[Rfam]
The family of this 52-nucleotide RNA from Sphingomonas paeninsulae is "ffh sRNA". Rfam classes the family as a small RNA.
RNA sequence: GCGUCCAAGGAUGCGCGCCAGCCGACGAGGUUUCGUCCGCUGGCGUUUUUUG
Numbered sequence: 001g002c003g004u005c006c007a008a009g010g011a012u013g014c015g016c017g018c019c020a021g022c023c024g025a026c027g028a029g030g031u032u033u034c035g036u037c038c039g040c041u042g043g044c045g046u047u048u049u050u051u052g
Stems, first nucleotide, its partner, number of pairs: 016045007025036004